RNA sequence: AAUCAGAAUAUCACAGCUAAAUACCAGGUGGAACAGAUUGUGUUACCAUUCCUUAUGCUUAACAAUCUGUUCCACCUGGUAUUUAGCUGUGACACUAG
Numbered sequence: 001a002a003u004c005a006g007a008a009u010a011u012c013a014c015a016g017c018u019a020a021a022u023a024c025c026a027g028g029u030g031g032a033a034c035a036g037a038u039u040g041u042g043u044u045a046c047c048a049u050u051c052c053u054u055a056u057g058c059u060u061a062a063c064a065a066u067c068u069g070u071u072c073c074a075c076c077u078g079g080u081a082u083u084u085a086g087c088u089g090u091g092a093c094a095c096u097a098g
Stems, first nucleotide, its partner, number of pairs: 013090006021082011033070008
Dot-bracket structure: ............((((((..(((((((((((.((((((((......................)))))))).)))))))))))..))))))........

Annotation:
mir-283 microRNA precursor family: a 98-nucleotide RNA sequence from Chrysemys picta. Its family is annotated with RISC complex and miRNA-mediated post-transcriptional gene silencing in the Gene Ontology. The family has 11 seed sequences and 98 matches in Rfam 15.1. A reference for the family is Weaver et al. (2007), "Computational and transcriptional evidence for microRNAs in the honey bee genome", Genome Biol.